Record summary:
This 97-nucleotide RNA from Acidothermus cellulolyticus belongs to the Rfam family "Bacterial small signal recognition particle RNA". The base pairs follow the family's consensus structure, which is taken from published work. On this family, see Rosenblad et al., RNA Biol 2009: "Kinship in the SRP RNA family". The family's RNA type in Rfam is non-coding RNA gene.

RNA sequence: GGAGACCCCUCGCGCGGCGUCCAUCUCGCCAACCCCCCCAGGGCCGGAAGGCAGCAAGGGUACGCGGGCUCUGACGGGUGUGCGGGGGGUCCUUUCG
Number, nucleotide and partner (000 for none) at each position: 001g000002g000003a000004g091005a090006c089007c088008c087009c086010u085011c084012g083013c082014g081015c078016g000017g000018c076019g075020u074021c073022c000023a000024u000025c068026u067027c066028g065029c064030c000031a000032a000033c000034c000035c060036c059037c058038c000039c000040a000041g000042g000043g052044c051045c050046g000047g000048a000049a000050g045051g044052c043053a000054g000055c000056a000057a000058g037059g036060g035061u000062a000063c000064g029065c028066g027067g026068g025069c000070u000071c000072u000073g021074a020075c019076g018077g000078g015079u000080g000081u014082g013083c012084g011085g010086g009087g008088g007089g006090u005091c004092c000093u000094u000095u000096c000097g000

Rfam describes the family as follows. The signal recognition particle (SRP) is a universally conserved ribonucleoprotein involved in the co-translational targeting of proteins to membranes. Its family is annotated with SRP-dependent cotranslational protein targeting to membrane, signal sequence recognition and signal recognition particle, plasma membrane targeting in the Gene Ontology. The source organism's lineage runs through Bacteria, Acidothermales, Acidothermaceae, Acidothermus and Acidothermus cellulolyticus.